[Rfam]
RNA sequence: CUCCGAAAAGGCAAACCCGGCGCGAGCCGGGGACGCAAAGCCACGGGGCCCUCGGGGUCAGCCGGGUUACCGAAU
Numbered sequence: 001c002u003c004c005g006a007a008a009a010g011g012c013a014a015a016c017c018c019g020g021c022g023c024g025a026g027c028c029g030g031g032g033a034c035g036c037a038a039a040g041c042c043a044c045g046g047g048g049c050c051c052u053c054g055g056g057g058u059c060a061g062c063c064g065g066g067u068u069a070c071c072g073a074a075u
Stems, first nucleotide, its partner, number of pairs: 003072001011036002016031006034061001039068004044064003047059003